[Rfam]
The family of this 74-nucleotide RNA sequence from Paracoccus sp. J56 is "tRNA".
The family's RNA type in Rfam is transfer RNA.
RNA sequence: GGGCCCGUAGCUCAACUGGAUAGAGCAGGGACCUUCUAAGUCCAAGGUUGAGGGUUCGAGCCCUUCCGGGCCCG
Numbered sequence: 001g002g003g004c005c006c007g008u009a010g011c012u013c014a015a016c017u018g019g020a021u022a023g024a025g026c027a028g029g030g031a032c033c034u035u036c037u038a039a040g041u042c043c044a045a046g047g048u049u050g051a052g053g054g055u056u057c058g059a060g061c062c063c064u065u066c067c068g069g070g071c072c073c074g
Stems, first nucleotide, its partner, number of pairs: 001073007010026004029043004050066005
The source organism's lineage runs through Bacteria, Pseudomonadati, Alphaproteobacteria, Rhodobacterales and Paracoccus. Its Rfam clan is "tRNA clan". On this family, see Hou, Trends Biochem Sci 1993: "The tertiary structure of tRNA and the development of the genetic code".